Notes:
The family of this 53-nucleotide RNA sequence from Tardiphaga sp. is "serC leader". The organism belongs to Tardiphaga, within Bacteria. Rfam classes the family as a cis-regulatory leader. This family is a putative regulatory RNA structure that is found upstream of the serC-serA operon in some alpha-proteobacteria. The final stem of the structure overlaps the ribosome binding site of the serC reading frame. The base pairs follow the family's consensus structure.
[Rfam]
RNA sequence: CAGUGGGCCACCUCCCCCCAACGGGAGGCUUGCUAUCUGGAAGGAUAGAGAAU
Numbered sequence: 001c002a003g004u005g006g007g008c009c010a011c012c013u014c015c016c017c018c019c020a021a022c023g024g025g026a027g028g029c030u031u032g033c034u035a036u037c038u039g040g041a042a043g044g045a046u047a048g049a050g051a052a053u
Stems, first nucleotide, its partner, number of pairs: 011028006033048006